[Rfam]
RNA sequence: UAAGCAAUGGGCGAUGGAGUUCGCCAUAAAUCCGUAAAAGCGGUAAUGACUCCUACCGGAAU
Numbered sequence: 001u002a003a004g005c006a007a008u009g010g011g012c013g014a015u016g017g018a019g020u021u022c023g024c025c026a027u028a029a030a031u032c033c034g035u036a037a038a039a040g041c042g043g044u045a046a047u048g049a050c051u052c053c054u055a056c057c058g059g060a061a062u
Base pairs, nucleotide, nucleotide: 010025011024012023013022016053017052018051019050020049021048032043033042034041035040
The family of this 62-nucleotide RNA from Allolucifera butyrica is "Fluoride riboswitch aptamer (crcB RNA motif)". A reference for the family is Baker et al. (2012), "Widespread genetic switches and toxicity resistance proteins for fluoride", Science.